[Rfam]
Shown here is a 176-nucleotide RNA from Sphaeramia orbicularis, a member of the family "U2 spliceosomal RNA".
RNA sequence: AUAAAAUUUCUAGGAAAAAAAAAAGUGUUUUUAUCAGUUUAAUAUCUGAUAUGUCCCCUAUCCGGGGACCAUAUAUUAAAUUGCUUUUUGGAUCAGGGAGCUGGAAUACGGGCUUGCUCCAUCCGCUCCACGCAUCGACCUGGUAUUGCAGUACCUCCAGGAACGGUGCAACACUU
Numbered sequence: 001a002u003a004a005a006a007u008u009u010c011u012a013g014g015a016a017a018a019a020a021a022a023a024a025g026u027g028u029u030u031u032u033a034u035c036a037g038u039u040u041a042a043u044a045u046c047u048g049a050u051a052u053g054u055c056c057c058c059u060a061u062c063c064g065g066g067g068a069c070c071a072u073a074u075a076u077u078a079a080a081u082u083g084c085u086u087u088u089u090g091g092a093u094c095a096g097g098g099a100g101c102u103g104g105a106a107u108a109c110g111g112g113c114u115u116g117c118u119c120c121a122u123c124c125g126c127u128c129c130a131c132g133c134a135u136c137g138a139c140c141u142g143g144u145a146u147u148g149c150a151g152u153a154c155c156u157c158c159a160g161g162a163a164c165g166g167u168g169c170a171a172c173a174c175u176u
Base pairs, nucleotide, nucleotide: 001008032051033050034049035048036047037046053069054068055067056066057065058064097129098128099127100126101125103123104122110119111118112117132169133168134167135166136165137164139161140160141159142158143157
The base pairs follow the family's consensus structure, which is taken from published work. Lineage of the source: Eukaryota > Opisthokonta > Gnathostomata > Gobiaria > Sphaeramia. It scores 112 bits against the family's covariance model.